[Rfam]
RNA sequence: GGCGCCAUAGCCAAACGGCCAAGGCAUGAGUCUGCAAAACUUUGAUUACGGGUUCGAAUCCCGUUGGCGCCU
Numbered sequence: 001g002g003c004g005c006c007a008u009a010g011c012c013a014a015a016c017g018g019c020c021a022a023g024g025c026a027u028g029a030g031u032c033u034g035c036a037a038a039a040c041u042u043u044g045a046u047u048a049c050g051g052g053u054u055c056g057a058a059u060c061c062c063g064u065u066g067g068c069g070c071c072u
Stems, first nucleotide, its partner, number of pairs: 001071007010025003028042004048064005

Notes:
This 72-nucleotide sequence from Mycoplasma crocodyli belongs to the Rfam family "tRNA". The family's RNA type in Rfam is transfer RNA. A search with the family's covariance model found it, with a score of 61 bits. For this family Rfam cites "The tertiary structure of tRNA and the development of the genetic code" (Hou, Trends Biochem Sci, 1993).